[Rfam]
RNA sequence: GGCACAGCUUCUGCUUAGGUAAAGGCAGGUAGCCAAAGGCGGUUACUCACAGACAUGACAAAGGCGUCGC
Numbered sequence: 001g002g003c004a005c006a007g008c009u010u011c012u013g014c015u016u017a018g019g020u021a022a023a024g025g026c027a028g029g030u031a032g033c034c035a036a037a038g039g040c041g042g043u044u045a046c047u048c049a050c051a052g053a054c055a056u057g058a059c060a061a062a063g064g065c066g067u068c069g070c
Base pairs, nucleotide, nucleotide: 028047029046030045031044032043033042034041
Shown here is a 70-nucleotide sequence from Stutzerimonas stutzeri, a member of the family "narK RNA". It is annotated as a cis-regulatory element. It scores 55 bits against the family's covariance model. The source organism's lineage runs through Bacteria, Pseudomonadati, Pseudomonadota, Gammaproteobacteria and Stutzerimonas.